[Rfam]
RNA sequence: CCAUUAACAGGUGAUGGAGUUCACCUUUAAUUGCCAAAGAUAUAUCUUUUAUCCUUUGGAUGAUGACUCCUACCGUAAG
Numbered sequence: 001c002c003a004u005u006a007a008c009a010g011g012u013g014a015u016g017g018a019g020u021u022c023a024c025c026u027u028u029a030a031u032u033g034c035c036a037a038a039g040a041u042a043u044a045u046c047u048u049u050u051a052u053c054c055u056u057u058g059g060a061u062g063a064u065g066a067c068u069c070c071u072a073c074c075g076u077a078a079g
Stems, first nucleotide, its partner, number of pairs: 010025004016070006034059006
A member of the RNA family "Fluoride riboswitch aptamer (crcB RNA motif)", 79 nucleotides long. Rfam links the family to the GO terms response to fluoride and positive regulation of gene expression. It scores 49 bits against the family's covariance model.